[Rfam]
RNA: HNH endonuclease-associated RNA and ORF (HEARO) RNA
RNA sequence: GUCAACCAUCCCGCCCUUUAGGGCGGGGCUUGCGGGUAAGCGCAGGCUCAGGUUGACCAGGGAAAGCGCUACCUAGUCCGCUACGUUGCAUGGAGAGCAAAAGACCGACGUUGGGAUGCUUCCUAAAGUCCCAACCUCUCGAAGCCAGAGUUGCAGCCGACCACAAGAGCAAGGGAGCUGGCGGACUCCGGCAUACGGCAGGCAUGCAACAUUCCCGAGGGGAGACGCC
Numbered sequence: 001g002u003c004a005a006c007c008a009u010c011c012c013g014c015c016c017u018u019u020a021g022g023g024c025g026g027g028g029c030u031u032g033c034g035g036g037u038a039a040g041c042g043c044a045g046g047c048u049c050a051g052g053u054u055g056a057c058c059a060g061g062g063a064a065a066g067c068g069c070u071a072c073c074u075a076g077u078c079c080g081c082u083a084c085g086u087u088g089c090a091u092g093g094a095g096a097g098c099a100a101a102a103g104a105c106c107g108a109c110g111u112u113g114g115g116a117u118g119c120u121u122c123c124u125a126a127a128g129u130c131c132c133a134a135c136c137u138c139u140c141g142a143a144g145c146c147a148g149a150g151u152u153g154c155a156g157c158c159g160a161c162c163a164c165a166a167g168a169g170c171a172a173g174g175g176a177g178c179u180g181g182c183g184g185a186c187u188c189c190g191g192c193a194u195a196c197g198g199c200a201g202g203c204a205u206g207c208a209a210c211a212u213u214c215c216c217g218a219g220g221g222g223a224g225a226c227g228c229c
Stems, first nucleotide, its partner, number of pairs: 001057007010028002012025001015022002029046006060216005065082004085210005091204002105141001110135008120225002122222002144192003148188005